[Rfam]
Nucleotides: 211
Stems, first nucleotide, its partner, number of pairs: 014058006059111004064106006071099003129205013143162006
Number, partner (000 for none) and nucleotide at each position: 001000a002000c003000a004000c005000g006000g007000g008000a009000a010000a011000g012000g013000a014058g015057g016056u017055g018054g019053u020000c021000c022000a023000a024000c025000g026000g027000u028000g029000a030000a031000g032000a033000c034000g035000u036000a037000u038000c039000g040000g041000a042000c043000u044000c045000g046000u047000g048000a049000g050000g051000u052000g053019g054018c055017u056016g057015u058014c059111c060110g061109c062108u063000a064106g065105g066104a067103c068102g069101c070000c071099c072098a073097a074000c075000a076000u077000c078000c079000c080000u081000u082000u083000c084000g085000u086000g087000g088000g089000a090000a091000a092000a093000c094000u095000g096000u097073u098072u099071g100000g101069g102068c103067g104066u105065u106064c107000a108062g109061g110060c111059g112000a113000a114000u115000a116000c117000c118000a119000g120000g121000c122000a123000g124000u125000u126000a127000c128000c129205c130204g131203g132202c133201c134200c135199c136198u137197g138196g139195g140194a141193u142000c143162c144161c145160g146159u147158g148157u149000g150000u151000g152000g153000u154000c155000c156000a157148g158147c159146g160145c161144g162143g163000g164000c165000c166000c167000g168000c169000g170000c171000g172000c173000c174000g175000u176000g177000c178000g179000g180000a181000g182000u183000g184000c185000g186000u187000g188000g189000g190000a191000g192000c193141a194140u195139c196138c197137c198136g199135g200134g201133g202132g203131c204130u205129g206000c207000c208000u209000a210000u211000u